A member of the RNA family "mir-1426 microRNA precursor family" from Alligator mississippiensis, 89 nucleotides long.
Gene Ontology terms of the family: RISC complex and miRNA-mediated post-transcriptional gene silencing.
RNA sequence: GAUGGCUGACACUCCUUCCUUAACUCAUACCGCUGUGCCUGCCUUCUUUCUUUCACAAUUGUGUGAGUUGAGUUCAGAGUGUCAGUCCA
Numbered sequence: 001g002a003u004g005g006c007u008g009a010c011a012c013u014c015c016u017u018c019c020u021u022a023a024c025u026c027a028u029a030c031c032g033c034u035g036u037g038c039c040u041g042c043c044u045u046c047u048u049u050c051u052u053u054c055a056c057a058a059u060u061g062u063g064u065g066a067g068u069u070g071a072g073u074u075c076a077g078a079g080u081g082u083c084a085g086u087c088c089a
Base pairs, nucleotide, nucleotide: 004087005086006085007084008083009082010081011080012079013078019072020071021070022069023068024067025066026065027064028063034057035056036055037054
A search with the family's covariance model found it, with a score of 92 bits.